[Rfam]
RNA sequence: ACAGUCUGAAAAUCACUUGGGGUCUUCUGUGGCCCCUGGUGGGAUAACUGUGCCGACAACAGAGGGAGCAUUAAACUCAUUGUGUGGGGAGUGAAACCCAUGUUCCUAUAAUC
Numbered sequence: 001a002c003a004g005u006c007u008g009a010a011a012a013u014c015a016c017u018u019g020g021g022g023u024c025u026u027c028u029g030u031g032g033c034c035c036c037u038g039g040u041g042g043g044a045u046a047a048c049u050g051u052g053c054c055g056a057c058a059a060c061a062g063a064g065g066g067a068g069c070a071u072u073a074a075a076c077u078c079a080u081u082g083u084g085u086g087g088g089g090a091g092u093g094a095a096a097c098c099c100a101u102g103u104u105c106c107u108a109u110a111a112u113c
Base pairs, nucleotide, nucleotide: 006050008048010045013042014041015040016039021034022033023032024031065106067104068103069102070101071100077094078093079092080091081090
The family of this 113-nucleotide RNA sequence from Bucco capensis is "Small nucleolar RNA ACA64". Taxonomically the source falls in Bucco (Eukaryota, Deuterostomia, Sauropsida, Coraciimorphae). For this family Rfam cites "A computational screen for mammalian pseudouridylation guide H/ACA RNAs" (Schattner et al., RNA, 2006).